[Rfam]
RNA sequence: ACCGCAGACCGCCUUAUCGUCGCUCAAUUCGUUGGGGGGAGGAAAGUCCGGACACCACAGAGAAGCAUAGCGGGUAACGCCCGUCGGUGUUAGAAAUAACGCAAGGACAAGUGCAGCAGAAAGUAUGUACAGGUAAUGCUGUAGUGAAACCAGGUAAACUCUAUGCGGUGAAAUACCAAGUAUAUCAGCAUUUAAGGGCUUCUCGUCCGUUGUUGAAGGGUAGGUAGCUUGAGUCCAACAGUAAUGUUGGAUCUAGAUAAAUGAUAAGGCUCUGAUUUAUCAGAGACAGAAUCCGGCUUAUAGGUCUGCAUUUUUU
Numbered sequence: 001a002c003c004g005c006a007g008a009c010c011g012c013c014u015u016a017u018c019g020u021c022g023c024u025c026a027a028u029u030c031g032u033u034g035g036g037g038g039g040a041g042g043a044a045a046g047u048c049c050g051g052a053c054a055c056c057a058c059a060g061a062g063a064a065g066c067a068u069a070g071c072g073g074g075u076a077a078c079g080c081c082c083g084u085c086g087g088u089g090u091u092a093g094a095a096a097u098a099a100c101g102c103a104a105g106g107a108c109a110a111g112u113g114c115a116g117c118a119g120a121a122a123g124u125a126u127g128u129a130c131a132g133g134u135a136a137u138g139c140u141g142u143a144g145u146g147a148a149a150c151c152a153g154g155u156a157a158a159c160u161c162u163a164u165g166c167g168g169u170g171a172a173a174u175a176c177c178a179a180g181u182a183u184a185u186c187a188g189c190a191u192u193u194a195a196g197g198g199c200u201u202c203u204c205g206u207c208c209g210u211u212g213u214u215g216a217a218g219g220g221u222a223g224g225u226a227g228c229u230u231g232a233g234u235c236c237a238a239c240a241g242u243a244a245u246g247u248u249g250g251a252u253c254u255a256g257a258u259a260a261a262u263g264a265u266a267a268g269g270c271u272c273u274g275a276u277u278u279a280u281c282a283g284a285g286a287c288a289g290a291a292u293c294c295g296g297c298u299u300a301u302a303g304g305u306c307u308g309c310a311u312u313u314u315u316u
Base pairs, nucleotide, nucleotide: 001312004309005308006307007306008305009304010303011301012269013268014267015266016265017264018263020039021038023036024035025034026033027032044299045298046297048296049295050294051293052292053170054169055168056167060204061203062202063201065166066165067164068163069162070084071083072082073081074080085105087102088101089100090099091098092097106161107160111159112158113155114154128143129142130141131140132139174226175225176224177223185216186215187214188213189212196208197207198206199205233252234251235250236249237248238247239246240245
This 316-nucleotide sequence from Flavobacterium bizetiae belongs to the Rfam family "Bacterial RNase P class A". Rfam classes the family as a ribozyme. The match comes from Rfam's covariance-model search (197 bits). The source organism's lineage runs through Bacteria, Pseudomonadati, Bacteroidota, Flavobacteriales and Flavobacterium.